[Rfam]
RNA sequence: UUGCAUGUUGGGAAUUCUUGUUAUGCUCCUCGUUCCCUGGGGAACAAGAUUAUCUGUGGCUUGCUACAUGAAAUAAAGGAGUUCUGAGGGCCACUAACCAUGUAGUGAAGGUUAAGUGAUAGUCUGUUUCUCAUACGGAA
Numbered sequence: 001u002u003g004c005a006u007g008u009u010g011g012g013a014a015u016u017c018u019u020g021u022u023a024u025g026c027u028c029c030u031c032g033u034u035c036c037c038u039g040g041g042g043a044a045c046a047a048g049a050u051u052a053u054c055u056g057u058g059g060c061u062u063g064c065u066a067c068a069u070g071a072a073a074u075a076a077a078g079g080a081g082u083u084c085u086g087a088g089g090g091c092c093a094c095u096a097a098c099c100a101u102g103u104a105g106u107g108a109a110g111g112u113u114a115a116g117u118g119a120u121a122g123u124c125u126g127u128u129u130c131u132c133a134u135a136c137g138g139a140a
Stems, first nucleotide, its partner, number of pairs: 003064003007060002022048001024046002027043003079132003090120001094116001095114005101108001
The record is a 140-nucleotide sequence from Nyctereutes procyonoides, which matches "Small nucleolar RNA U109" in Rfam.
Rfam 15.1 lists 1,405 matches to the family in 622 species.
The literature on the family includes a 2005 paper in Nucleic Acids Res by Gu et al., "A novel experimental approach for systematic identification of box H/ACA snoRNAs from eukaryotes".
The source organism's lineage runs through Eukaryota, Craniata, Sarcopterygii, Tetrapoda and Nyctereutes.
The match comes from Rfam's covariance-model search (65 bits).
Its family is annotated with RNA processing and nucleolus in the Gene Ontology.
The base pairs follow the family's consensus structure, which was predicted with WAR.